A member of the RNA family "S15-Halobacteria ribosomal protein leader" from Natronosalvus rutilus, 73 nucleotides long.
On this family, see Eckert and Weinberg, BMC Microbiol 2020: "Discovery of 20 novel ribosomal leader candidates in bacteria and archaea".
RNA sequence: GUGGGAAGCGCGCGGCCGCAAAUCUGACUUCGUCACCCCGCAGUUGUCGGGUGACUCGGGAUUGCGGAAGUGC
Numbered sequence: 001g002u003g004g005g006a007a008g009c010g011c012g013c014g015g016c017c018g019c020a021a022a023u024c025u026g027a028c029u030u031c032g033u034c035a036c037c038c039c040g041c042a043g044u045u046g047u048c049g050g051g052u053g054a055c056u057c058g059g060g061a062u063u064g065c066g067g068a069a070g071u072g073c
Base pairs, nucleotide, nucleotide: 010073011072012071013070016067017066018065019064020063021062024060025059032055033054034053035052036051037050038049
It scores 68 bits against the family's covariance model. Its Rfam clan is "Ribosomal Protein S15 Leader clan". The family's RNA type in Rfam is cis-regulatory leader.